[Rfam]
RNA sequence: GCAAAGGGAUUCUAGGGUUCCGCGGCGCUCGCGCCGGACUGGUCCGAGGGAAUCCGCGCGAUAGCCGUUCUAUUGCGAAUGACACGGAGGGACAAAAGCCCGGGAGAU
Numbered sequence: 001g002c003a004a005a006g007g008g009a010u011u012c013u014a015g016g017g018u019u020c021c022g023c024g025g026c027g028c029u030c031g032c033g034c035c036g037g038a039c040u041g042g043u044c045c046g047a048g049g050g051a052a053u054c055c056g057c058g059c060g061a062u063a064g065c066c067g068u069u070c071u072a073u074u075g076c077g078a079a080u081g082a083c084a085c086g087g088a089g090g091g092a093c094a095a096a097a098g099c100c101c102g103g104g105a106g107a108u
Stems, first nucleotide, its partner, number of pairs: 007055006015045002020042002022039001023036005057077007083103001085106001089101003
RNA: Guanidine-I riboswitch aptamer
Organism: Paenibacillus sp. MY03